[Rfam]
This 157-nucleotide RNA from Aphis craccivora belongs to the Rfam family "U12 minor spliceosomal RNA". A search with the family's covariance model found it, with a score of 113 bits. Rfam 15.1 lists 2,106 matches to the family in 1,170 species. The organism belongs to Aphis, within Eukaryota. Rfam classes the family as a spliceosomal small nuclear RNA.

RNA sequence: GUGCCUUAAACUAAUGAGUAAGGAAAAUUUACAAGCCUUGGUGACGCUUGGCUUCGACAGUCACAUACUGUUACCUUAAAUUUUUUGAAGGGUAUAGGUCGUCCCCUUGACUGGCUCGCCUACUUUGCGGGCCGGUCGGGCGAUAGCGAUCUGCCCU
Dot-bracket structure: ...(((((..........))))).........(((((..(......)..))))).(((((.......)))))................(((((..(((((((...((.(((((.(((((.......))))).))))).)).....))))))))))))